[Rfam]
RNA: permuted transfer-messenger RNA
RNA sequence: GGUGAUAAACGCGCAUGUAAUAAGCGGAUCGGACCCGGGGGCGGUACCCGGCGGCUCCACCAACAUCCUUCGUUUGGGGAUCAUGGGGCCGAAACAGGAUCGACGGACGUGUAAAGAUGUUGCUUUCACUCGGCGGACGGCCACCGUUAUCGGCGUAAAAAGCAUAGUUGCAAACGACAAUCGUGCUCCGGUUGCUCUCGCUGCGUAA
Numbered sequence: 001g002g003u004g005a006u007a008a009a010c011g012c013g014c015a016u017g018u019a020a021u022a023a024g025c026g027g028a029u030c031g032g033a034c035c036c037g038g039g040g041g042c043g044g045u046a047c048c049c050g051g052c053g054g055c056u057c058c059a060c061c062a063a064c065a066u067c068c069u070u071c072g073u074u075u076g077g078g079g080a081u082c083a084u085g086g087g088g089c090c091g092a093a094a095c096a097g098g099a100u101c102g103a104c105g106g107a108c109g110u111g112u113a114a115a116g117a118u119g120u121u122g123c124u125u126u127c128a129c130u131c132g133g134c135g136g137a138c139g140g141c142c143a144c145c146g147u148u149a150u151c152g153g154c155g156u157a158a159a160a161a162g163c164a165u166a167g168u169u170g171c172a173a174a175c176g177a178c179a180a181u182c183g184u185g186c187u188c189c190g191g192u193u194g195c196u197c198u199c200g201c202u203g204c205g206u207a208a
Stems, first nucleotide, its partner, number of pairs: 001130005013120004025109002029106003035051005052091007131146003